The family of this 93-nucleotide RNA sequence from Roseovarius litorisediminis is "Rhodo-rpoB RNA".
[Rfam]
RNA sequence: UGAUCGGGAGGCUGUCAUUGGGACGACAGCCAUGAAUGGAUCAUAAUCUGCCGUCUCGGAUGGUAACGGUGCUGGGGCCCGACAGCACGCGCU
Numbered sequence: 001u002g003a004u005c006g007g008g009a010g011g012c013u014g015u016c017a018u019u020g021g022g023a024c025g026a027c028a029g030c031c032a033u034g035a036a037u038g039g040a041u042c043a044u045a046a047u048c049u050g051c052c053g054u055c056u057c058g059g060a061u062g063g064u065a066a067c068g069g070u071g072c073u074g075g076g077g078c079c080c081g082a083c084a085g086c087a088c089g090c091g092c093u
Stems, first nucleotide, its partner, number of pairs: 001043005010031007065093001067091002070087005
The organism belongs to Roseovarius, within Bacteria.